RNA: BsrG
RNA sequence: GCAAUAGUGGCUUACGUGGGCGGUCGGCGCAUACCCCUUAAUUAGAAAGGGGGUGACGCCAAUGGAGACGUUUCAGGCUCUUCAAUUAAUGUUCCUAUUCGGAAUGUUUAUUCUAGCGCUACUAACGUUUAUCCAGAAAAUGAAAUAGAUCGCCCUCGGUAAGGAAACGAUCCAUUUCGUUUGAAAACCCUUAUAAGCCGACCGCUUAUUGUGCGGCUGUUGCUGGCCGUAGACGUUCACAGCGUCUGCG
Numbered sequence: 001g002c003a004a005u006a007g008u009g010g011c012u013u014a015c016g017u018g019g020g021c022g023g024u025c026g027g028c029g030c031a032u033a034c035c036c037c038u039u040a041a042u043u044a045g046a047a048a049g050g051g052g053g054u055g056a057c058g059c060c061a062a063u064g065g066a067g068a069c070g071u072u073u074c075a076g077g078c079u080c081u082u083c084a085a086u087u088a089a090u091g092u093u094c095c096u097a098u099u100c101g102g103a104a105u106g107u108u109u110a111u112u113c114u115a116g117c118g119c120u121a122c123u124a125a126c127g128u129u130u131a132u133c134c135a136g137a138a139a140a141u142g143a144a145a146u147a148g149a150u151c152g153c154c155c156u157c158g159g160u161a162a163g164g165a166a167a168c169g170a171u172c173c174a175u176u177u178c179g180u181u182u183g184a185a186a187a188c189c190c191u192u193a194u195a196a197g198c199c200g201a202c203c204g205c206u207u208a209u210u211g212u213g214c215g216g217c218u219g220u221u222g223c224u225g226g227c228c229g230u231a232g233a234c235g236u237u238c239a240c241a242g243c244g245u246c247u248g249c250g
Stems, first nucleotide, its partner, number of pairs: 001223005007217001008200006015158002018155005030055002034053005064132001066130005077092002102123001168179003202216004228250010